The family of this 137-nucleotide RNA from Echinops telfairi is "Small nucleolar RNA SNORD94". The literature on the family includes a 2002 paper in Mol Cell Biol by Galardi et al., "Purified box C/D snoRNPs are able to reproduce site-specific 2'-O-methylation of target RNA in vitro". It is annotated as a C/D-box small nucleolar RNA. Taxonomically the source falls in Echinops (Eukaryota, Eumetazoa, Chordata, Teleostomi).
RNA sequence: CAGGCUGUGAUGAUUGGCGCAGGGGUACGGACCUCAGCUGAGCCAUGGGAGCUGAAUGUCAGUGUCUCUCCUCCGUCCUGCAUGUGGCAGGGUGCUGGCGAGCACUGGCAUGAGACUGGUGCCUCAAUCUGAGCCUG
Numbered sequence: 001c002a003g004g005c006u007g008u009g010a011u012g013a014u015u016g017g018c019g020c021a022g023g024g025g026u027a028c029g030g031a032c033c034u035c036a037g038c039u040g041a042g043c044c045a046u047g048g049g050a051g052c053u054g055a056a057u058g059u060c061a062g063u064g065u066c067u068c069u070c071c072u073c074c075g076u077c078c079u080g081c082a083u084g085u086g087g088c089a090g091g092g093u094g095c096u097g098g099c100g101a102g103c104a105c106u107g108g109c110a111u112g113a114g115a116c117u118g119g120u121g122c123c124u125c126a127a128u129c130u131g132a133g134c135c136u137g
Stems, first nucleotide, its partner, number of pairs: 001137005